[Rfam]
RNA sequence: GGGGCUGCAAUGGCUUCGACGGGGAUAAUGAAUCCCGAGUAGCGAGUAGUGUUGAGUUCCACUUUAAUCAGCUCAAACUUAAAUAUAAACGCUAACGAUACAGAAUUAGCUUACGCUGCCUAAUUGCGGCGUUGUCUUCCCUGCGAGUACCACGGCGCAGGCUAAGGCAUCAUUUUAGUGGUGAACGUGAGUUAAGGCUUGCUCCUGCCUUUUCCACGCCUUGGGAGCUACCGAUGAUAUAACUUUGGUUAUGAAGUAGUAUCAAAGGGAAUUUAAAUCAUAACCUGCACUCGGAGAAGCUUGGGUGGACUUGUUUUCGGACAGGAGUUCGAUUCUCCUCAGCUCCACCA
Numbered sequence: 001g002g003g004g005c006u007g008c009a010a011u012g013g014c015u016u017c018g019a020c021g022g023g024g025a026u027a028a029u030g031a032a033u034c035c036c037g038a039g040u041a042g043c044g045a046g047u048a049g050u051g052u053u054g055a056g057u058u059c060c061a062c063u064u065u066a067a068u069c070a071g072c073u074c075a076a077a078c079u080u081a082a083a084u085a086u087a088a089a090c091g092c093u094a095a096c097g098a099u100a101c102a103g104a105a106u107u108a109g110c111u112u113a114c115g116c117u118g119c120c121u122a123a124u125u126g127c128g129g130c131g132u133u134g135u136c137u138u139c140c141c142u143g144c145g146a147g148u149a150c151c152a153c154g155g156c157g158c159a160g161g162c163u164a165a166g167g168c169a170u171c172a173u174u175u176u177a178g179u180g181g182u183g184a185a186c187g188u189g190a191g192u193u194a195a196g197g198c199u200u201g202c203u204c205c206u207g208c209c210u211u212u213u214c215c216a217c218g219c220c221u222u223g224g225g226a227g228c229u230a231c232c233g234a235u236g237a238u239a240u241a242a243c244u245u246u247g248g249u250u251a252u253g254a255a256g257u258a259g260u261a262u263c264a265a266a267g268g269g270a271a272u273u274u275a276a277a278u279c280a281u282a283a284c285c286u287g288c289a290c291u292c293g294g295a296g297a298a299g300c301u302u303g304g305g306u307g308g309a310c311u312u313g314u315u316u317u318c319g320g321a322c323a324g325g326a327g328u329u330c331g332a333u334u335c336u337c338c339u340c341a342g343c344u345c346c347a348c349c350a
Base pairs, nucleotide, nucleotide: 001346002345003344004343005342006341007340020319021318022317023316024315025314026313027312028311034305035304036303037302038301039300040299043293044292045291046290047289048063049062050061051060052076053075054074055073056072057071058070113132114131115130116129117128118127119126133169134168135167136166137165138164140161141160142159143158144157145156148183149182150181151180152179153178188218189217191215194212201228202227203226204225205224231268232267235264236263237262238261239260240259243256244255245254247285248284249283250282253278323339324338325337326336327335
Background
transfer-messenger RNA: a 350-nucleotide RNA from Lachnospiraceae bacterium MD329. Taxonomically the source falls in Lachnospiraceae (Bacteria, Bacillota, Clostridia, Lachnospirales). Bacterial tmRNA, also known as 10Sa RNA or SsrA, is named for its dual tRNA and mRNA-like properties. The family's consensus secondary structure is taken from published work.